[Rfam]
RNA sequence: UGGAGAGAAAGGCAGUUCCUGAUGGUCCCCUCCCCAGGGGCUGGCUUUCCUCUGGU
Numbered sequence: 001u002g003g004a005g006a007g008a009a010a011g012g013c014a015g016u017u018c019c020u021g022a023u024g025g026u027c028c029c030c031u032c033c034c035c036a037g038g039g040g041c042u043g044g045c046u047u048u049c050c051u052c053u054g055g056u
Base pairs, nucleotide, nucleotide: 001054002053003052004051005050007049008048009047010046011045013043014042015041016040017039018038019037020036021035024033025032
Rfam assigns this 56-nucleotide RNA from Tupaia belangeri to the family "mir-185 microRNA precursor family".
The literature on the family includes a 2005 paper in Proc Natl Acad Sci U S A by Cai et al., "Kaposi's sarcoma-associated herpesvirus expresses an array of viral microRNAs in latently infected cells".
The base pairs follow the family's consensus structure, which was predicted with RNAalifold.
Rfam 15.1 lists 130 matches to the family in 129 species.